[Rfam]
RNA sequence: UCAGUCGGCCGGCUUGCCGUGUGCAUUCGUUUCUUGAGAUGCAGGAGGAAAGUCCGGGCAACGUAGAGCAUUCUGCUUCUUAAUUGGAAGUCGUCCGUGAGGGUGAACCAGUGCAGAAGAAAAUAACCGCCCGCUGUCACUAUAACAGUAGGGUAAGGGUGAGAAGGCGGGGUAAGAGCCCACCAGGCACAUGGUGACAUGUGUGCUGUGCACGUCAGAAGUUGAAAGUUCAUGUAUACCAGCGUAAGAGGGCUGCUCGUCCGAGCAUUUAAUGCCUAAACAGUAUUAAAUGCGCGUUGGAGGGUAGAACGAUAGAGCACUUUGGCAACAAAGUGCGCGGAUAAAUGGCAGGCGCUGUGCAUCUUUUUAGGGUGCAUGGUCACAGAACCCGGCUUAUAGGCCGUCUGAUUCU
Dot-bracket structure: ((((.(((((((((((((.(.((((((..........)))))).)....[[[.[[[[[((((........((((((((((.....)))))(.((((....)))).)(...(((((...........((((((.((((.......))))..))))..)).......((.(((.......))).)).((((((((....))))))).)..))))).))))))))))...((((.......(((((((................................................)))))))......))))......((((((((....))))))))..........)))))))..................................]]]]]]]].).))))).))))....
Numbered sequence: 001u002c003a004g005u006c007g008g009c010c011g012g013c014u015u016g017c018c019g020u021g022u023g024c025a026u027u028c029g030u031u032u033c034u035u036g037a038g039a040u041g042c043a044g045g046a047g048g049a050a051a052g053u054c055c056g057g058g059c060a061a062c063g064u065a066g067a068g069c070a071u072u073c074u075g076c077u078u079c080u081u082a083a084u085u086g087g088a089a090g091u092c093g094u095c096c097g098u099g100a101g102g103g104u105g106a107a108c109c110a111g112u113g114c115a116g117a118a119g120a121a122a123a124u125a126a127c128c129g130c131c132c133g134c135u136g137u138c139a140c141u142a143u144a145a146c147a148g149u150a151g152g153g154u155a156a157g158g159g160u161g162a163g164a165a166g167g168c169g170g171g172g173u174a175a176g177a178g179c180c181c182a183c184c185a186g187g188c189a190c191a192u193g194g195u196g197a198c199a200u201g202u203g204u205g206c207u208g209u210g211c212a213c214g215u216c217a218g219a220a221g222u223u224g225a226a227a228g229u230u231c232a233u234g235u236a237u238a239c240c241a242g243c244g245u246a247a248g249a250g251g252g253c254u255g256c257u258c259g260u261c262c263g264a265g266c267a268u269u270u271a272a273u274g275c276c277u278a279a280a281c282a283g284u285a286u287u288a289a290a291u292g293c294g295c296g297u298u299g300g301a302g303g304g305u306a307g308a309a310c311g312a313u314a315g316a317g318c319a320c321u322u323u324g325g326c327a328a329c330a331a332a333g334u335g336c337g338c339g340g341a342u343a344a345a346u347g348g349c350a351g352g353c354g355c356u357g358u359g360c361a362u363c364u365u366u367u368u369a370g371g372g373u374g375c376a377u378g379g380u381c382a383c384a385g386a387a388c389c390c391g392g393c394u395u396a397u398a399g400g401c402c403g404u405c406u407g408a409u410u411c412u
Stems, first nucleotide, its partner, number of pairs: 001408004006403005011397001012353007020045001022043006050395003054392005059224004071220005076090005091106001093104004107215001111213005127158002129154004134148004166184002169181003186206001187204007228310004239300007317336008
This 412-nucleotide sequence from Prevotella sp. CAG:5226 belongs to the Rfam family "Bacterial RNase P class A". It scores 204 bits against the family's covariance model.